[Rfam]
Description: A member of the RNA family "DUF805b RNA", 34 nucleotides long. The family's consensus secondary structure is taken from published work. Rfam's curators put it in the seed alignment. Clan: DUF805 clan.

RNA sequence: ACGGAGGUUCCGAAAAUCCAAGAAAGAGUAGGAA
Dot-bracket structure: ..(((...[[[.....)))...........]]].
Rfam classes the family as a cis-regulatory element.